[Rfam]
RNA sequence: UGACGGAAGGGCACACCAGGGGUGGAGCUUGUGGCUUAAUUUGAAUCAACACGGGAAAACUUACCAGGACCAGAUAUUUUUAAUGACUGAUCAGGCUAUAGGUCUUUCAGGAUAUGAUUUUUGGUGGUGCAUGGCCGUUGGUGGUGCGUGGGUUGACCUGUCUAGCGUUGAUUCAGAUAACGAGCGAGAUUAUCACCAAUUAAAUAUAUAAAUAUUUUUAUUAAAAUAAUUUAUUUUCUAAUUGGGACUCCCUGCGUCUAAGCAGGAGGAAGAUGGUAGCAAUAACAGGUCCGUGAUGUCCUUUAGAUGCUCUGGGCUGCACGCGCGCUACAAUGUUAUAAUCAAAGAGGUUUGCUAAAUCGAUAGAUUAUCUUUUUUUUUAAAGAUUUCAUAGCUACUCUGUUAAUAUAUAACGUAGUUGGGAUUGAUAAUUGUAAUCAUUAUCAUGAACCAGGAAUCCCUUGUAAAUGCGUGUCAACAACGCGCGUUGAAUACGUCCCUGCCCUUUGUACACA
Numbered sequence: 001u002g003a004c005g006g007a008a009g010g011g012c013a014c015a016c017c018a019g020g021g022g023u024g025g026a027g028c029u030u031g032u033g034g035c036u037u038a039a040u041u042u043g044a045a046u047c048a049a050c051a052c053g054g055g056a057a058a059a060c061u062u063a064c065c066a067g068g069a070c071c072a073g074a075u076a077u078u079u080u081u082a083a084u085g086a087c088u089g090a091u092c093a094g095g096c097u098a099u100a101g102g103u104c105u106u107u108c109a110g111g112a113u114a115u116g117a118u119u120u121u122u123g124g125u126g127g128u129g130c131a132u133g134g135c136c137g138u139u140g141g142u143g144g145u146g147c148g149u150g151g152g153u154u155g156a157c158c159u160g161u162c163u164a165g166c167g168u169u170g171a172u173u174c175a176g177a178u179a180a181c182g183a184g185c186g187a188g189a190u191u192a193u194c195a196c197c198a199a200u201u202a203a204a205u206a207u208a209u210a211a212a213u214a215u216u217u218u219u220a221u222u223a224a225a226a227u228a229a230u231u232u233a234u235u236u237u238c239u240a241a242u243u244g245g246g247a248c249u250c251c252c253u254g255c256g257u258c259u260a261a262g263c264a265g266g267a268g269g270a271a272g273a274u275g276g277u278a279g280c281a282a283u284a285a286c287a288g289g290u291c292c293g294u295g296a297u298g299u300c301c302u303u304u305a306g307a308u309g310c311u312c313u314g315g316g317c318u319g320c321a322c323g324c325g326c327g328c329u330a331c332a333a334u335g336u337u338a339u340a341a342u343c344a345a346a347g348a349g350g351u352u353u354g355c356u357a358a359a360u361c362g363a364u365a366g367a368u369u370a371u372c373u374u375u376u377u378u379u380u381u382a383a384a385g386a387u388u389u390c391a392u393a394g395c396u397a398c399u400c401u402g403u404u405a406a407u408a409u410a411u412a413a414c415g416u417a418g419u420u421g422g423g424a425u426u427g428a429u430a431a432u433u434g435u436a437a438u439c440a441u442u443a444u445c446a447u448g449a450a451c452c453a454g455g456a457a458u459c460c461c462u463u464g465u466a467a468a469u470g471c472g473u474g475u476c477a478a479c480a481a482c483g484c485g486c487g488u489u490g491a492a493u494a495c496g497u498c499c500c501u502g503c504c505c506u507u508u509g510u511a512c513a514c515a
Stems, first nucleotide, its partner, number of pairs: 001513002003510003007507007015497002019461005024331001026329003030325004034320002040055004064315005070309001076118003089108002093105003123302002126300004132296001133294001134290003137286004144185002147182003150159003163176001165174001191278004196245003201241001203239001206236001208234002248269002251266005335414006348401002377394001380391001382389002421451001426446007467489008
The record is a 515-nucleotide part of an RNA from Dientamoeba fragilis, which matches "Eukaryotic small subunit ribosomal RNA" in Rfam.
The family is grouped with related families in Rfam's "SSU clan".
The organism belongs to Dientamoeba, within Eukaryota.